[Rfam]
RNA sequence: AACGCAGGUCGCCUUAUCGCACUUUUACAGUGAGGAAAGUCCGGACACCAAAGCACAGCUUAGCGGGUAAUUCCCGUCAAUUUAUAAGCGAUUAUAAAUCGGACAAGUGCAACAGAAAGCAAGUACAGUUCGGCUGUAGUGAAACCAGGUAAACUCUAGGCGGUGAAAUACCAAGUAAACCAAGGCUUGAGGCUUGUGCGGUCGAUCUUGGAGGGUUGGUAGCUUGAGUUUGGCAGUAAUGUCAAAUCUAGAUAAAUGAUAAGGCAUUAAGUUUAACUUAAUGACAGAAUCCGGCUUAUAGACCUGCAUUUUUU
Numbered sequence: 001a002a003c004g005c006a007g008g009u010c011g012c013c014u015u016a017u018c019g020c021a022c023u024u025u026u027a028c029a030g031u032g033a034g035g036a037a038a039g040u041c042c043g044g045a046c047a048c049c050a051a052a053g054c055a056c057a058g059c060u061u062a063g064c065g066g067g068u069a070a071u072u073c074c075c076g077u078c079a080a081u082u083u084a085u086a087a088g089c090g091a092u093u094a095u096a097a098a099u100c101g102g103a104c105a106a107g108u109g110c111a112a113c114a115g116a117a118a119g120c121a122a123g124u125a126c127a128g129u130u131c132g133g134c135u136g137u138a139g140u141g142a143a144a145c146c147a148g149g150u151a152a153a154c155u156c157u158a159g160g161c162g163g164u165g166a167a168a169u170a171c172c173a174a175g176u177a178a179a180c181c182a183a184g185g186c187u188u189g190a191g192g193c194u195u196g197u198g199c200g201g202u203c204g205a206u207c208u209u210g211g212a213g214g215g216u217u218g219g220u221a222g223c224u225u226g227a228g229u230u231u232g233g234c235a236g237u238a239a240u241g242u243c244a245a246a247u248c249u250a251g252a253u254a255a256a257u258g259a260u261a262a263g264g265c266a267u268u269a270a271g272u273u274u275a276a277c278u279u280a281a282u283g284a285c286a287g288a289a290u291c292c293g294g295c296u297u298a299u300a301g302a303c304c305u306g307c308a309u310u311u312u313u314u
Stems, first nucleotide, its partner, number of pairs: 001310002004307007011299001012264007020032004037297003041294005046165004053199004058161005063077005078101001079099001081097002102156002107154002109150002124138006169221004180211005191203004228247008

Source information:
Shown here is a 314-nucleotide RNA sequence from Psychroflexus halocasei, a member of the family "Bacterial RNase P class A". The family's consensus secondary structure is taken from published work. Ribonuclease P (RNase P) is a ubiquitous endoribonuclease, found in archaea, bacteria and eukarya as well as chloroplasts and mitochondria. Its best characterised activity is the generation of mature 5'-ends of tRNAs by cleaving the 5'-leader elements of precursor-tRNAs. Cellular RNase Ps are ribonucleoproteins. RNA from bacterial RNase Ps retains its catalytic activity in the absence of the protein subunit, i.e. it is a ribozyme. Isolated eukaryotic and archaeal RNase P RNA has not been shown to retain its catalytic function, but is still essential for the catalytic activity of the holoenzyme. Although the archaeal and eukaryotic holoenzyme s have a much greater protein content than the bacterial ones, the RNA cores from all the three lineages are homologous -- helices corresponding to P1, P2, P3, P4, and P10/11 are common to all cellular RNase P RNAs. Yet, there is considerable sequence variation, particularly among the eukaryotic RNAs. Identified in Yersinia as Ysr151/RnpB. Taxonomically the source falls in Psychroflexus (Bacteria, Pseudomonadati, Flavobacteriia, Flavobacteriales).